[Rfam]
This 75-nucleotide RNA sequence from Altererythrobacter sp. B11 belongs to the Rfam family "c-di-GMP-I-GGC riboswitch aptamer".
The match comes from Rfam's covariance-model search (60 bits).
RNA sequence: UUUGAUAAGGGCAAACCGUCGGUAACGGCGGGACGCAAAGGUUCCGACCCCCUUGGGGUGGCGGGCCUGCCGAAG
Numbered sequence: 001u002u003u004g005a006u007a008a009g010g011g012c013a014a015a016c017c018g019u020c021g022g023u024a025a026c027g028g029c030g031g032g033a034c035g036c037a038a039a040g041g042u043u044c045c046g047a048c049c050c051c052c053u054u055g056g057g058g059u060g061g062c063g064g065g066c067c068u069g070c071c072g073a074a075g
Base pairs, nucleotide, nucleotide: 001075003072004071011036012035016031017030018029019028020027021026034061039068040067041066042065044064045063046062047059048058049057